[Rfam]
RNA sequence: AUGGCUUCAUGUUUUAUGUAAGCUUACAGCUGUAUGCUAAGUUUAAUUAGUUAAUGCUGCUAAUUAUGAAGCCUAAAAAGUUGUGUUUCCCUCGCUAUCCAGUGCUGUAAUUAAUGCUGUAUUGGACGUCGGGAAACUACAUUU
Numbered sequence: 001a002u003g004g005c006u007u008c009a010u011g012u013u014u015u016a017u018g019u020a021a022g023c024u025u026a027c028a029g030c031u032g033u034a035u036g037c038u039a040a041g042u043u044u045a046a047u048u049a050g051u052u053a054a055u056g057c058u059g060c061u062a063a064u065u066a067u068g069a070a071g072c073c074u075a076a077a078a079a080g081u082u083g084u085g086u087u088u089c090c091c092u093c094g095c096u097a098u099c100c101a102g103u104g105c106u107g108u109a110a111u112u113a114a115u116g117c118u119g120u121a122u123u124g125g126a127c128g129u130c131g132g133g134a135a136a137c138u139a140c141a142u143u144u
Stems, first nucleotide, its partner, number of pairs: 002075001003073003008068002016065001019062002027059004033053001036051003085137007093128002098126005107117003